[Rfam]
RNA sequence: GUAUCCACCAGUAGAACCCUUCGUUGCCCGAAUGCUGGCAGAAACUGUUGGCAGAACGGCAACAUUUUUUUU
Number, nucleotide and partner (000 for none) at each position: 001g000002u000003a000004u000005c000006c000007a000008c000009c000010a000011g000012u000013a000014g000015a000016a000017c000018c000019c000020u000021u000022c000023g063024u062025u061026g060027c059028c058029c000030g000031a000032a000033u053034g052035c051036u050037g049038g048039c047040a046041g045042a000043a000044a000045c041046u040047g039048u038049u037050g036051g035052c034053a033054g000055a000056a000057c000058g028059g027060c026061a025062a024063c023064a000065u000066u000067u000068u000069u000070u000071u000072u000